[Rfam]
RNA sequence: UCUAUCCUUGUCUUGGGGGAGCAAAGUAUUCAAUGAUCGUUUAGUGAGAGUACUGUUGCUGAAGCCCAUUAUUAAUUUAAAUCCGCAUCCUCGUGUUAUCAUGUGAGAUGCAAUUUUUGAAGGC
Number, nucleotide and partner (000 for none) at each position: 001u000002c000003u000004a000005u019006c018007c017008u016009u015010g000011u000012c000013u000014u000015g009016g008017g007018g006019g005020a000021g059022c058023a057024a056025a054026g053027u052028a051029u050030u049031c048032a000033a000034u000035g000036a000037u000038c044039g000040u000041u000042u000043a000044g038045u000046g000047a000048g031049a030050g029051u028052a027053c026054u025055g000056u024057u023058g022059c021060u000061g000062a000063a000064g000065c000066c000067c000068a000069u000070u000071a000072u000073u000074a000075a000076u000077u000078u000079a000080a000081a000082u000083c000084c000085g111086c110087a109088u108089c107090c105091u000092c103093g102094u101095g100096u000097u000098a000099u000100c095101a094102u093103g092104u000105g090106a000107g089108a088109u087110g086111c085112a000113a000114u000115u000116u000117u000118u000119g000120a000121a000122g000123g000124c000

A member of the RNA family "U4atac minor spliceosomal RNA" from Apis mellifera, 124 nucleotides long.
For this family Rfam cites "Evolution of spliceosomal snRNA genes in metazoan animals" (Marz et al., J Mol Evol, 2008).
The base pairs follow the family's consensus structure, which is taken from published work.
Rfam links the family to the GO terms spliceosomal tri-snRNP complex assembly, pre-mRNA 5'-splice site binding and mRNA 5'-splice site recognition.